RNA sequence: UUCAGGUACGGGGACAUGGUGCCCAAGACCAUAGUGGGGAAGGUGUUCGGCUCCAUCUGCUCUCUGAGUGGGGUACUGGUCAUCGCCUUGCCUGUUCCCGUUAUCGUGUCAAAC
Number, nucleotide and partner (000 for none) at each position: 001u000002u113003c000004a000005g110006g000007u108008a107009c106010g105011g104012g000013g102014a101015c100016a000017u000018g097019g096020u000021g095022c094023c000024c000025a000026a000027g000028a000029c000030c000031a000032u000033a000034g000035u000036g000037g077038g076039g000040a074041a000042g000043g000044u000045g000046u000047u000048c000049g063050g062051c000052u000053c000054c000055a000056u000057c000058u000059g000060c000061u000062c050063u049064c000065u000066g000067a000068g000069u000070g000071g000072g000073g000074u040075a000076c038077u037078g000079g000080u000081c000082a000083u000084c000085g000086c000087c000088u000089u000090g000091c000092c000093u000094g022095u021096u019097c018098c000099c000100g015101u014102u013103a000104u011105c010106g009107u008108g007109u000110c005111a000112a000113a002114c000
Shown here is a 114-nucleotide sequence from Gadus morhua, a member of the family "Potassium channel RNA editing signal". It scores 81 bits against the family's covariance model. Lineage of the source: Eukaryota > Teleostomi > Neopterygii > Teleostei > Gadus. The family's consensus secondary structure is taken from published work. Rfam describes the family as follows. This family represents a group of sequences related to the human potassium channel Kv1.1 hairpin element which directs the efficient modification of an adenosine to inosine by an adenosine deaminase acting on RNA (ADAR).